Rfam assigns this 205-nucleotide RNA sequence from Oryza sativa to the family "MIR812 microRNA precursor family".
The family has 22 seed sequences and 57,451 matches in Rfam 15.1.
The family's consensus secondary structure was predicted with RNAalifold.
The organism belongs to Oryza sativa, within Eukaryota.
[Rfam]
RNA sequence: AAAAAGAUAAACCUUGGAUUUCUGUGUCCAAUGUUGGACCGUCCGUCUUAUUUAAAAAAUAAUGAAAAAAUUGAAAAGAUAAGUCACGCAUAAAGUAUUAAUCAUGUUUUAUCAUCUAACAAUAAUAAAAAUACUAAUUAUAAAAAAAUUUCAUAUAAGAUGGAUAGUCAAACGUUGGAUACGGAAACCUAAGGUUUUUUUAAGG
Dot-bracket structure: ..........................((((((.((.(((.(((((((((((.......................................................................................................))))))))))).))).)).))))))..........................